[Rfam]
RNA sequence: GCAUUUUGGGCGUGUGAUUUGUGGCAAAGUGAUGAGCUUGGAUUCCAUCCCCUUGUUGCAAACCUCACGCCAAAGGUGG
Numbered sequence: 001g002c003a004u005u006u007u008g009g010g011c012g013u014g015u016g017a018u019u020u021g022u023g024g025c026a027a028a029g030u031g032a033u034g035a036g037c038u039u040g041g042a043u044u045c046c047a048u049c050c051c052c053u054u055g056u057u058g059c060a061a062a063c064c065u066c067a068c069g070c071c072a073a074a075g076g077u078g079g
Stems, first nucleotide, its partner, number of pairs: 002078006009071006016064001018062010029051001031049003